[Rfam]
RNA: Purine riboswitch aptamer
Organism: Lentibacillus halodurans
Nucleotides: 102
Stems, first nucleotide, its partner, number of pairs: 018088001020086006031047004058078007
Number, partner (000 for none) and nucleotide at each position: 001000a002000a003000a004000g005000a006000u007000g008000a009000c010000u011000a012000u013000a014000a015000u016000g017000c018088c019000a020086u021085u022084c023083a024082u025081a026000u027000a028000u029000c030000c031047u032046c033045g034044a035000u036000a037000a038000u039000a040000u041000g042000g043000u044034u045033c046032g047031a048000a049000a050000g051000u052000u053000u054000c055000u056000a057000c058078c059077g060076g061075a062074g063073c064072a065000c066000c067000g068000c069000a070000a071000a072064u073063g074062c075061u076060c077059u078058g079000a080000c081025u082024a083023u084022g085021a086020a087000g088018g089000c090000g091000g092000a093000a094000u095000u096000u097000c098000a099000a100000u101000a102000g